[Rfam]
RNA sequence: ACACGGGAAGGAGGUGGUCCAGAGGAUGAAUGACUUUGGGACAUGUGAGGUGUCGGCCAGCUAGCCGCACGCGCUGACUGUGUGUUCUGGUCCCCUGCGGCCGGCUAAUCCACAGCCAACACCCGAACCCGCGAGCGCCGGAGUUGUUCACCGGCCGACGACGUCGACAUCGAGCGGCGCGCCGAAGUGCUCGCGGGUUCGUCCAU
Numbered sequence: 001a002c003a004c005g006g007g008a009a010g011g012a013g014g015u016g017g018u019c020c021a022g023a024g025g026a027u028g029a030a031u032g033a034c035u036u037u038g039g040g041a042c043a044u045g046u047g048a049g050g051u052g053u054c055g056g057c058c059a060g061c062u063a064g065c066c067g068c069a070c071g072c073g074c075u076g077a078c079u080g081u082g083u084g085u086u087c088u089g090g091u092c093c094c095c096u097g098c099g100g101c102c103g104g105c106u107a108a109u110c111c112a113c114a115g116c117c118a119a120c121a122c123c124c125g126a127a128c129c130c131g132c133g134a135g136c137g138c139c140g141g142a143g144u145u146g147u148u149c150a151c152c153g154g155c156c157g158a159c160g161a162c163g164u165c166g167a168c169a170u171c172g173a174g175c176g177g178c179g180c181g182c183c184g185a186a187g188u189g190c191u192c193g194c195g196g197g198u199u200c201g202u203c204c205a206u
Base pairs, nucleotide, nucleotide: 013058014057015056017054059106060105061104062103064101065100067098068097069096071094073092125200126199127198128197129196130195131194132193133192134191135190136189137188
Actinobacteria sRNA Ms_IGR-5: a 206-nucleotide RNA from Friedmanniella luteola. NCBI's taxonomy places the organism under Bacteria, Bacillati, Actinomycetota, Nocardioidaceae, Friedmanniella. The match comes from Rfam's covariance-model search (81 bits). It is annotated as a small RNA.